A member of the RNA family "mir-2060 microRNA precursor family" from Branchiostoma belcheri, 94 nucleotides long. Its family is annotated with RISC complex and miRNA-mediated post-transcriptional gene silencing in the Gene Ontology. Taxonomically the source falls in Branchiostoma (Eukaryota, Bilateria, Chordata, Amphioxiformes). A search with the family's covariance model found it, with a score of 89 bits.
RNA sequence: GUUCACUUGUGUGUGGAUGGUGUUCAGUACCAAGGACAGGCAUGUUCACUUGUAUGUGGAUGGUGUUCAGUACCAAGGACAAGCAUGUUCACUU
Numbered sequence: 001g002u003u004c005a006c007u008u009g010u011g012u013g014u015g016g017a018u019g020g021u022g023u024u025c026a027g028u029a030c031c032a033a034g035g036a037c038a039g040g041c042a043u044g045u046u047c048a049c050u051u052g053u054a055u056g057u058g059g060a061u062g063g064u065g066u067u068c069a070g071u072a073c074c075a076a077g078g079a080c081a082a083g084c085a086u087g088u089u090c091a092c093u094u
Base pairs, nucleotide, nucleotide: 006083007082008081009080010079018075019074020073021072022071023070024069026067027066028065029064030063031062032061034055036053037052038051039050040049